RNA: mir-19 microRNA precursor family
RNA sequence: AGCAUCUAUCAGUUUGGCAAGAUUUGCACUGAAUACAGUACAGUACUGAGUCCAGUGCAAAUCUUGCCAAACUGAUAGAUGCU
Numbered sequence: 001a002g003c004a005u006c007u008a009u010c011a012g013u014u015u016g017g018c019a020a021g022a023u024u025u026g027c028a029c030u031g032a033a034u035a036c037a038g039u040a041c042a043g044u045a046c047u048g049a050g051u052c053c054a055g056u057g058c059a060a061a062u063c064u065u066g067c068c069a070a071a072c073u074g075a076u077a078g079a080u081g082c083u
Stems, first nucleotide, its partner, number of pairs: 003081019023061007031053001